[Rfam]
RNA sequence: CUCUUAUCCCGAGCUGGUGGAGGGACAGGCCCAAUGAAACCCAGCAACCUGCAAACGAAGAACUUGGAUCCACUUGGACCAUUUUCCGAGCAAAGGUGCUAAACCUGAUGCAAGGCUUGACCUUGAACGAUAAGAG
Numbered sequence: 001c002u003c004u005u006a007u008c009c010c011g012a013g014c015u016g017g018u019g020g021a022g023g024g025a026c027a028g029g030c031c032c033a034a035u036g037a038a039a040c041c042c043a044g045c046a047a048c049c050u051g052c053a054a055a056c057g058a059a060g061a062a063c064u065u066g067g068a069u070c071c072a073c074u075u076g077g078a079c080c081a082u083u084u085u086c087c088g089a090g091c092a093a094a095g096g097u098g099c100u101a102a103a104c105c106u107g108a109u110g111c112a113a114g115g116c117u118u119g120a121c122c123u124u125g126a127a128c129g130a131u132a133a134g135a136g
Stems, first nucleotide, its partner, number of pairs: 001136008013042001016041003022032003026110002029105001043100004048096002050092003111125005
Rfam assigns this 136-nucleotide sequence from Neobacillus massiliamazoniensis to the family "SAM riboswitch aptamer (S box leader)". The match comes from Rfam's covariance-model search (69 bits). Pairs were carried over by alignment from the consensus structure, which is taken from published work.